RNA sequence: CCCCAAACUUAUGGGGCGUCGCCGGUGCCACGGAAUUAAGCCGUGGGUGCGAGAUAGUGAAAAUCCCCGGAG
Numbered sequence: 001c002c003c004c005a006a007a008c009u010u011a012u013g014g015g016g017c018g019u020c021g022c023c024g025g026u027g028c029c030a031c032g033g034a035a036u037u038a039a040g041c042c043g044u045g046g047g048u049g050c051g052a053g054a055u056a057g058u059g060a061a062a063a064u065c066c067c068c069g070g071a072g
Base pairs, nucleotide, nucleotide: 001016002015003014004013005012022070023069024068025067028046029045030044031043032042033041
This 72-nucleotide RNA belongs to the Rfam family "RAGATH-16 RNA". By type it is a small RNA.